[Rfam]
RNA sequence: UUAUUCCUUCGGGGUCGGGUGAAAUUCCCAAUCGACGGUGAUGAAGUGAAACUUCUAAGCCCGUGAGCUUGUUAUAAGCAGGAUUUGGUGCGAAUCCAAAGCCGACAGUAUAGUCUGGAUGGGAGAAGGAACUA
Numbered sequence: 001u002u003a004u005u006c007c008u009u010c011g012g013g014g015u016c017g018g019g020u021g022a023a024a025u026u027c028c029c030a031a032u033c034g035a036c037g038g039u040g041a042u043g044a045a046g047u048g049a050a051a052c053u054u055c056u057a058a059g060c061c062c063g064u065g066a067g068c069u070u071g072u073u074a075u076a077a078g079c080a081g082g083a084u085u086u087g088g089u090g091c092g093a094a095u096c097c098a099a100a101g102c103c104g105a106c107a108g109u110a111u112a113g114u115c116u117g118g119a120u121g122g123g124a125g126a127a128g129g130a131a132c133u134a
Stems, first nucleotide, its partner, number of pairs: 004131007017029003031114002033104002035064004059102002067079003084100005106117003
Rfam assigns this 134-nucleotide sequence from Lysinibacillus halotolerans to the family "FMN riboswitch aptamer (RFN element)". Pairs were carried over by alignment from the consensus structure, which is taken from published work.